[Rfam]
RNA sequence: GCACUGGCAGGGAGUUAUACCGCUGUGGCCCCUUGCUGGAUCUUAAAGGAGAGCGAUGUCAUAGAUCCAGACAGUGC
Numbered sequence: 001g002c003a004c005u006g007g008c009a010g011g012g013a014g015u016u017a018u019a020c021c022g023c024u025g026u027g028g029c030c031c032c033u034u035g036c037u038g039g040a041u042c043u044u045a046a047a048g049g050a051g052a053g054c055g056a057u058g059u060c061a062u063a064g065a066u067c068c069a070g071a072c073a074g075u076g077c
Base pairs, nucleotide, nucleotide: 001077002076003075004074005073006072010031011030012029037069038068039067040066041065042064043063

This 77-nucleotide RNA sequence from Gloeobacter kilaueensis belongs to the Rfam family "CyVA-1 RNA".
Lineage of the source: Bacteria > Cyanophyceae > Gloeobacteraceae > Gloeobacter > Gloeobacter kilaueensis.
Pairs were carried over by alignment from the consensus structure, which is taken from published work.
Cyanobacteria, Acidobacteria (1 example), Verrucomicrobia (1 example).